[Rfam]
RNA sequence: GAAGACAUUACAGUAGUGUAUUACAAUACAAAGUGUGAACUUUGCAUUGUAAUACACUGUUAUAUUACUUGA
Dot-bracket structure: .(.........((((((((((((((((.((((((....)))))).))))))))))))))))....)......
RNA: mir-2804 microRNA precursor family
Organism: Bombyx mori